[Rfam]
RNA: c-di-GMP-I riboswitch aptamer
RNA sequence: UAUAAUCAAAGGCAAACUAUUUGAAAAGAUAGGACGCAAAGUUACGGCCUAAGCAACGGAAAGUAAUAGUUGUAAGGUGGACGGACUACCUGA
Numbered sequence: 001u002a003u004a005a006u007c008a009a010a011g012g013c014a015a016a017c018u019a020u021u022u023g024a025a026a027a028g029a030u031a032g033g034a035c036g037c038a039a040a041g042u043u044a045c046g047g048c049c050u051a052a053g054c055a056a057c058g059g060a061a062a063g064u065a066a067u068a069g070u071u072g073u074a075a076g077g078u079g080g081a082c083g084g085a086c087u088a089c090c091u092g093a
Stems, first nucleotide, its partner, number of pairs: 012037002017032006040087004045083002047078003054072004